[Rfam]
RNA sequence: AAACGUUCAACUCUUAUUAGAGCCGCAGUUCGACUCAAGCCAUGGAACGGGGACUUGAG
Numbered sequence: 001a002a003a004c005g006u007u008c009a010a011c012u013c014u015u016a017u018u019a020g021a022g023c024c025g026c027a028g029u030u031c032g033a034c035u036c037a038a039g040c041c042a043u044g045g046a047a048c049g050g051g052g053a054c055u056u057g058a059g
Stems, first nucleotide, its partner, number of pairs: 004049005011022004034059006040052002
The family of this 59-nucleotide RNA sequence from Prochlorococcus marinus is "Glutamine-II riboswitch aptamer". The literature on the family includes a 2019 paper in Nucleic Acids Res by Huang et al., "Structure and ligand binding of the glutamine-II riboswitch".